[Rfam]
RNA: Small nucleolar RNA Z122
Organism: Hibiscus syriacus
RNA sequence: UUUGGGAAAUGAUGACAGCUUAAUUGCUGGAUAGUAUCUGAGCAAAUCUUUGACGAAUUAUCUUUUGCACGUCAGUCUGAUCCCAAA
Numbered sequence: 001u002u003u004g005g006g007a008a009a010u011g012a013u014g015a016c017a018g019c020u021u022a023a024u025u026g027c028u029g030g031a032u033a034g035u036a037u038c039u040g041a042g043c044a045a046a047u048c049u050u051u052g053a054c055g056a057a058u059u060a061u062c063u064u065u066u067g068c069a070c071g072u073c074a075g076u077c078u079g080a081u082c083c084c085a086a087a
Stems, first nucleotide, its partner, number of pairs: 001087007